[Rfam]
RNA sequence: CUGUCACAAUGACAAGGUCCGUCCUCGGGCGGACUAGGUGGCUCACACCGGUGCUUCGGACAGCGGUUCGAUUCCGCUCAGCUCCAUUCCACCCCGCUGCGGCGGCGGUGUCCGCGGGGCUGCAAUGGUUUCGACGGGGUAUGAGGAGGGUGACUGAAGCCUGCUCGGUAAGAGCAAACCCGUAACAGCGAACAACAUCGUUCGUUUCUCCCGUCAGACCGCCCCUGUGGCUGCCUGACUCCUAUAGGGAGAUGGGGUAGGUCAGCCUUAUCACCCAAAUGACCCAUGGGGGGCUGGAAGGCCCC
Numbered sequence: 001c002u003g004u005c006a007c008a009a010u011g012a013c014a015a016g017g018u019c020c021g022u023c024c025u026c027g028g029g030c031g032g033a034c035u036a037g038g039u040g041g042c043u044c045a046c047a048c049c050g051g052u053g054c055u056u057c058g059g060a061c062a063g064c065g066g067u068u069c070g071a072u073u074c075c076g077c078u079c080a081g082c083u084c085c086a087u088u089c090c091a092c093c094c095c096g097c098u099g100c101g102g103c104g105g106c107g108g109u110g111u112c113c114g115c116g117g118g119g120c121u122g123c124a125a126u127g128g129u130u131u132c133g134a135c136g137g138g139g140u141a142u143g144a145g146g147a148g149g150g151u152g153a154c155u156g157a158a159g160c161c162u163g164c165u166c167g168g169u170a171a172g173a174g175c176a177a178a179c180c181c182g183u184a185a186c187a188g189c190g191a192a193c194a195a196c197a198u199c200g201u202u203c204g205u206u207u208c209u210c211c212c213g214u215c216a217g218a219c220c221g222c223c224c225c226u227g228u229g230g231c232u233g234c235c236u237g238a239c240u241c242c243u244a245u246a247g248g249g250a251g252a253u254g255g256g257g258u259a260g261g262u263c264a265g266c267c268u269u270a271u272c273a274c275c276c277a278a279a280u281g282a283c284c285c286a287u288g289g290g291g292g293g294c295u296g297g298a299a300g301g302c303c304c305c
Stems, first nucleotide, its partner, number of pairs: 017034007037155003041151004048146002051142008062078005079122007162176005217236001221231003248276002251272008290305006
Rfam assigns this 305-nucleotide RNA from Synechococcus sp. WH 5701 to the family "Cyanobacteria transfer-messenger RNA". NCBI's taxonomy places the organism under Bacteria, Bacillati, Cyanophyceae, Synechococcales, Synechococcus. The family is grouped with related families in Rfam's "tRNA clan". Pairs were carried over by alignment from the consensus structure, which is taken from published work.